[Rfam]
RNA sequence: UCCGACAAAGGCCAACCCGUCGCGAGGCGGGGGCGCAAAGCCACGGGUCUCCUGCGGGAGACGGCCGGGCCGCCGAAG
Numbered sequence: 001u002c003c004g005a006c007a008a009a010g011g012c013c014a015a016c017c018c019g020u021c022g023c024g025a026g027g028c029g030g031g032g033g034c035g036c037a038a039a040g041c042c043a044c045g046g047g048u049c050u051c052c053u054g055c056g057g058g059a060g061a062c063g064g065c066c067g068g069g070c071c072g073c074c075g076a077a078g
Stems, first nucleotide, its partner, number of pairs: 001078001003075002011036002016031006034064001040070003044067003047062003

A member of the RNA family "c-di-GMP-I-GGC riboswitch aptamer" from Limnochorda pilosa, 78 nucleotides long.
The family's consensus secondary structure is taken from published work.
On this family, see Smith et al., Biochemistry 2010: "Structural and biochemical determinants of ligand binding by the c-di-GMP riboswitch ".